[Rfam]
Nucleotides: 090
Stems, first nucleotide, its partner, number of pairs: 004087006013078009022063003025059001027058003035050003039046002
Number, partner (000 for none) and nucleotide at each position: 001000u002000g003000g004087u005086g006085a007084g008083g009082a010000c011000u012000c013078g014077g015076g016075a017074g018073g019072u020071g021070g022063a023062g024061g025059g026000u027058g028057g029056c030000g031000c032000u033000g034000c035050c036049a037048g038000g039046g040045c041000c042000a043000g044000g045040g046039c047000a048037c049036u050035g051000u052000c053000u054000c055000a056029g057028c058027u059025c060000g061024c062023u063022u064000c065000u066000c067000c068000c069000c070021c071020c072019a073018c074017c075016u076015c077014c078013u079000c080000u081000c082009u083008c084007c085006u086005c087004a088000g089000g090000u
Shown here is a 90-nucleotide sequence from Sus scrofa, a member of the family "mir-1224 microRNA precursor family". Rfam links the family to the GO terms miRNA-mediated post-transcriptional gene silencing and RISC complex. A reference for the family is Berezikov et al. (2006), "Many novel mammalian microRNA candidates identified by extensive cloning and RAKE analysis", Genome Res.